[Rfam]
RNA: glmS glucosamine-6-phosphate activated ribozyme aptamer
Organism: Gracilibacillus thailandensis
RNA sequence: AUUUAAAUAAAAGCGCCUGGGCUAUGACGUACGGUAAACUCAUAGCUGACGAGGAGGAGGUUUAUCGAGCAUGAUCGGCGGAUGCCUCCCGGUUGCACAUCUCAACCGAUAUGUUUUUGUUCGAAAGCAGGAAGGCAACUUCUUGUACAAGAAUAAGAGCAAGAUGAAC
Numbered sequence: 001a002u003u004u005a006a007a008u009a010a011a012a013g014c015g016c017c018u019g020g021g022c023u024a025u026g027a028c029g030u031a032c033g034g035u036a037a038a039c040u041c042a043u044a045g046c047u048g049a050c051g052a053g054g055a056g057g058a059g060g061u062u063u064a065u066c067g068a069g070c071a072u073g074a075u076c077g078g079c080g081g082a083u084g085c086c087u088c089c090c091g092g093u094u095g096c097a098c099a100u101c102u103c104a105a106c107c108g109a110u111a112u113g114u115u116u117u118u119g120u121u122c123g124a125a126a127g128c129a130g131g132a133a134g135g136c137a138a139c140u141u142c143u144u145g146u147a148c149a150a151g152a153a154u155a156a157g158a159g160c161a162a163g164a165u166g167a168a169c
Base pairs, nucleotide, nucleotide: 020047021046022045023044024043025042026041027040056089057088058087059086060085065078066077067076068075090108091107092106093105094104095103114159115158116157117156118155119154120153128145129144130143131142132141133140134139